[Rfam]
RNA sequence: UUAUAACAUUUUCCUCGGCAGUUAACUGCAUCCGGAUUUCUAAAACUUCGGCAGUUAACUGCCGAGGAACAU
Numbered sequence: 001u002u003a004u005a006a007c008a009u010u011u012u013c014c015u016c017g018g019c020a021g022u023u024a025a026c027u028g029c030a031u032c033c034g035g036a037u038u039u040c041u042a043a044a045a046c047u048u049c050g051g052c053a054g055u056u057a058a059c060u061g062c063c064g065a066g067g068a069a070c071a072u
Stems, first nucleotide, its partner, number of pairs: 012068002015065015

The record is a 72-nucleotide RNA from Medicago truncatula, which matches "MIR2629 microRNA precursor family" in Rfam. A search with the family's covariance model found it, with a score of 69 bits. Gene Ontology terms of the family: miRNA-mediated post-transcriptional gene silencing and RISC complex. The family's consensus secondary structure was predicted with RNAalifold.